[Rfam]
RNA sequence: CUCCCACGUGAAAGCGAAGUCCCCGUGGAGCUUUACUGCAGCCUGUCGCUGUGAUAUGGUCCUAGGUGUGUAGAGUAGGCGGGAGCCGUCGAAGGAUGCUCGUCAGGGUAUCUGGAGGCAACGAUGAAACACCGCCCUUCUGGGGUUAUGUCACUAACCUGGUAAAGGGACACCGAUAGGUGGGCAGUUUGGGUGGGGCGCCACGCCCUCGAAAAGAUAACAAGGGCCCCCAAAGGUUGGCUCAGGAGGGUCAGCAAUCCUCCGUAGAGCGUAAGGGCAAAAGCCAGCUUGACUGGUUCACUCACAAUAAAGGAACCAGAUGCGAAAGCAAGGCCUAGCGAACCACCCAGUCCUCCUUAGUGGGGGCGGGUGAUAAGAGAGAAGUUACCCCAGGGAUAACUGAGUCGUCGCCGGCAAGAGUUCAUAUCGACCCGGCGGUUUGCUACUUCGAUGUCGUCUGUUCCUAUCCUGGCGGUGCAGCAGCUGCCAAGGGUGGGGCUGUUCGCCCAUUAAAAGGGAUCCUGAGAUGGGUUCACUACGUUGCGAGACAGUAGGGUUGCUUCUCCGUGGGAGUGCAA
Dot-bracket structure: ((((((((.((..((......((.(.(((((((.((((...(((((((..((((((((((((((((.(.........(((((..(((.........(((((....)))))......)))............)))))).))))))))))))))))...(((.....))).....)))))))....))))..((((.....))).)(((((.............)))))..((....((((((((.((((((.......))))))...))((......))....))))))....(((((((.............))))))).(.(....).).))..........(((((.(.((((.......)))))))))).........)))))..))).))........(((.((((((((...((.......))...)))))))..))))..........(((((((((((..((..(((((......)))))....))..((((.....))))......)))))..)..)))).).....(((((((....))).))))....))...)))))))))).....
Numbered sequence: 001c002u003c004c005c006a007c008g009u010g011a012a013a014g015c016g017a018a019g020u021c022c023c024c025g026u027g028g029a030g031c032u033u034u035a036c037u038g039c040a041g042c043c044u045g046u047c048g049c050u051g052u053g054a055u056a057u058g059g060u061c062c063u064a065g066g067u068g069u070g071u072a073g074a075g076u077a078g079g080c081g082g083g084a085g086c087c088g089u090c091g092a093a094g095g096a097u098g099c100u101c102g103u104c105a106g107g108g109u110a111u112c113u114g115g116a117g118g119c120a121a122c123g124a125u126g127a128a129a130c131a132c133c134g135c136c137c138u139u140c141u142g143g144g145g146u147u148a149u150g151u152c153a154c155u156a157a158c159c160u161g162g163u164a165a166a167g168g169g170a171c172a173c174c175g176a177u178a179g180g181u182g183g184g185c186a187g188u189u190u191g192g193g194u195g196g197g198g199c200g201c202c203a204c205g206c207c208c209u210c211g212a213a214a215a216g217a218u219a220a221c222a223a224g225g226g227c228c229c230c231c232a233a234a235g236g237u238u239g240g241c242u243c244a245g246g247a248g249g250g251u252c253a254g255c256a257a258u259c260c261u262c263c264g265u266a267g268a269g270c271g272u273a274a275g276g277g278c279a280a281a282a283g284c285c286a287g288c289u290u291g292a293c294u295g296g297u298u299c300a301c302u303c304a305c306a307a308u309a310a311a312g313g314a315a316c317c318a319g320a321u322g323c324g325a326a327a328g329c330a331a332g333g334c335c336u337a338g339c340g341a342a343c344c345a346c347c348c349a350g351u352c353c354u355c356c357u358u359a360g361u362g363g364g365g366g367c368g369g370g371u372g373a374u375a376a377g378a379g380a381g382a383a384g385u386u387a388c389c390c391c392a393g394g395g396a397u398a399a400c401u402g403a404g405u406c407g408u409c410g411c412c413g414g415c416a417a418g419a420g421u422u423c424a425u426a427u428c429g430a431c432c433c434g435g436c437g438g439u440u441u442g443c444u445a446c447u448u449c450g451a452u453g454u455c456g457u458c459u460g461u462u463c464c465u466a467u468c469c470u471g472g473c474g475g476u477g478c479a480g481c482a483g484c485u486g487c488c489a490a491g492g493g494u495g496g497g498g499c500u501g502u503u504c505g506c507c508c509a510u511u512a513a514a515a516g517g518g519a520u521c522c523u524g525a526g527a528u529g530g531g532u533u534c535a536c537u538a539c540g541u542u543g544c545g546a547g548a549c550a551g552u553a554g555g556g557u558u559g560c561u562u563c564u565c566c567g568u569g570g571g572a573g574u575g576c577a578a
Stems, first nucleotide, its partner, number of pairs: 001573008010565002014560002022394002025391001027390002029386005035188004042180007051154016068137001078136005085119003097110005158168003191204001192202003205227005230333002236288006242268002245263006269278002293319007321330001323328001344372005350367001352366004403444003407441001408438007418428002455530001456528004460522001461519005468493002472487005496508004536554004540549003